A member of the RNA family "Small nucleolar RNA snoR27" from Hordeum vulgare, 85 nucleotides long. Lineage of the source: Eukaryota > Embryophyta > Spermatophyta > Hordeinae > Hordeum vulgare. A reference for the family is Brown et al. (2001), "Multiple snoRNA gene clusters from Arabidopsis", RNA. Rfam 15.1 lists 649 matches to the family in 212 species. Its Rfam clan is "snR68 clan".

[Rfam]
RNA sequence: CAUGGAUCGAUGAUGUGUUUGUUAACUGCGUUAUCUUUCUGAACUUCCCAAGUAAAGAGGAAAGCAUUACCUACUGAGAUCCAAC
Numbered sequence: 001c002a003u004g005g006a007u008c009g010a011u012g013a014u015g016u017g018u019u020u021g022u023u024a025a026c027u028g029c030g031u032u033a034u035c036u037u038u039c040u041g042a043a044c045u046u047c048c049c050a051a052g053u054a055a056a057g058a059g060g061a062a063a064g065c066a067u068u069a070c071c072u073a074c075u076g077a078g079a080u081c082c083a084a085c
Base pairs, nucleotide, nucleotide: 003083004082005081006080007079